[Rfam]
Shown here is a 155-nucleotide RNA sequence from Aneurinibacillus soli, a member of the family "FMN riboswitch aptamer (RFN element)". It scores 116 bits against the family's covariance model.

RNA sequence: AACUCCUUUCAGGGCAGGGUGCAAUUCCCGACCGGCGGUGAUGGAACACCUCUUACUUGUUCUACAGUCCGCGACCCGGAUGCAAAUCGUACGCGUCCGGCUGACCCGGUGUAAUUCCGGGACCGACAGUAUAGUCUGGAUGGGAGAAGGGAGAA
Numbered sequence: 001a002a003c004u005c006c007u008u009u010c011a012g013g014g015c016a017g018g019g020u021g022c023a024a025u026u027c028c029c030g031a032c033c034g035g036c037g038g039u040g041a042u043g044g045a046a047c048a049c050c051u052c053u054u055a056c057u058u059g060u061u062c063u064a065c066a067g068u069c070c071g072c073g074a075c076c077c078g079g080a081u082g083c084a085a086a087u088c089g090u091a092c093g094c095g096u097c098c099g100g101c102u103g104a105c106c107c108g109g110u111g112u113a114a115u116u117c118c119g120g121g122a123c124c125g126a127c128a129g130u131a132u133a134g135u136c137u138g139g140a141u142g143g144g145a146g147a148a149g150g151g152a153g154a155a
Base pairs, nucleotide, nucleotide: 003153004152005151006150007149008148009147010146017029018028019027031135032134033125034124035072036071037070038069067123068122076100077099078098079097105121106120107119108118109117127138128137129136